The record is a 110-nucleotide RNA from Clostridiales bacterium CHKCI006, which matches "TPP riboswitch aptamer (THI element)" in Rfam.
Rfam describes the family as follows. Vitamin B(1) in its active form thiamin pyrophosphate (TPP) is an essential coenzyme that is synthesised by coupling of pyrimidine and thiazole moieties in bacteria.
RNA sequence: GGUUGCUGUCAGGGGUGCUUAUAGAAAAGCUGAGAGAAAACUGAUCUGUUUUUAACCCUUUGAACCUGGAUCUGGUUAGUACCAGCGUAGGGAGAUAUUUCAUCAUAUUU
Numbered sequence: 001g002g003u004u005g006c007u008g009u010c011a012g013g014g015g016u017g018c019u020u021a022u023a024g025a026a027a028a029g030c031u032g033a034g035a036g037a038a039a040a041c042u043g044a045u046c047u048g049u050u051u052u053u054a055a056c057c058c059u060u061u062g063a064a065c066c067u068g069g070a071u072c073u074g075g076u077u078a079g080u081a082c083c084a085g086c087g088u089a090g091g092g093a094g095a096u097a098u099u100u101c102a103u104c105a106u107a108u109u110u
Base pairs, nucleotide, nucleotide: 007097008096009095010094011059012058013057014056017030018029019028020027037052038051039050040049041048065091066090067089068088072085073084074083075082

The organism belongs to Eubacteriales, within Bacteria.